The family of this 328-nucleotide RNA sequence from Xenorhabdus japonica is "RNase E 5' UTR element". By type it is a cis-regulatory element.
RNA sequence: UUUCUGGCCACAGUUUACUAAACUAUGAAUGGCAAGAUUGAAAUUGUUUGUUAUCUGUUUGAUCGAACAAAAACGCAGCAAAUGCAUAAGACGUAAUGUUUGAUCAAGCAAUUUAUGGGCUGUGGGUGGCAGCUUACUGGAUUGGGAAAAAUUUGUACCUAUGCUAUUGCAGCAUCCCAAUAGAGUACUGUGUUUAAAUGAAAUUCAGACUCAUCGACAAAUAGGCACCUCUAUGCAAACGAUAGCCGUGAGGCUGGCGGUUUUGUAAAAGACACGAGGUCAUCGGUAGCCAGUAGUUCUCCCUCGUUUACUCGCAGCUCUAUAUUAA
Numbered sequence: 001u002u003u004c005u006g007g008c009c010a011c012a013g014u015u016u017a018c019u020a021a022a023c024u025a026u027g028a029a030u031g032g033c034a035a036g037a038u039u040g041a042a043a044u045u046g047u048u049u050g051u052u053a054u055c056u057g058u059u060u061g062a063u064c065g066a067a068c069a070a071a072a073a074c075g076c077a078g079c080a081a082a083u084g085c086a087u088a089a090g091a092c093g094u095a096a097u098g099u100u101u102g103a104u105c106a107a108g109c110a111a112u113u114u115a116u117g118g119g120c121u122g123u124g125g126g127u128g129g130c131a132g133c134u135u136a137c138u139g140g141a142u143u144g145g146g147a148a149a150a151a152u153u154u155g156u157a158c159c160u161a162u163g164c165u166a167u168u169g170c171a172g173c174a175u176c177c178c179a180a181u182a183g184a185g186u187a188c189u190g191u192g193u194u195u196a197a198a199u200g201a202a203a204u205u206c207a208g209a210c211u212c213a214u215c216g217a218c219a220a221a222u223a224g225g226c227a228c229c230u231c232u233a234u235g236c237a238a239a240c241g242a243u244a245g246c247c248g249u250g251a252g253g254c255u256g257g258c259g260g261u262u263u264u265g266u267a268a269a270a271g272a273c274a275c276g277a278g279g280u281c282a283u284c285g286g287u288a289g290c291c292a293g294u295a296g297u298u299c300u301c302c303c304u305c306g307u308u309u310a311c312u313c314g315c316a317g318c319u320c321u322a323u324a325u326u327a328a
Stems, first nucleotide, its partner, number of pairs: 003037003007033002014027001016025002056110007066100004073094003078085002117320011135295006144178004153172005184211003188208003193203003213287005227280005240259002243256005
Rfam links the family to the GO term regulation of gene expression. This family represents a conserved element found in the 5' UTR of RNase E mRNA. RNase E is a key regulatory enzyme in the pathway of mRNA degradation in E. coli that is able to auto-regulate the degradation of its own mRNA in response to changes in RNase E activity. This rne 5' UTR element acts as a sensor of cellular RNase E concentration enabling tight regulation of RNase E concentration and synthesis. A reference for the family is Diwa et al. (2000), "An evolutionarily conserved RNA stem-loop functions as a sensor that directs feedback regulation of RNase E gene expression", Genes Dev. The organism belongs to Xenorhabdus, within Bacteria.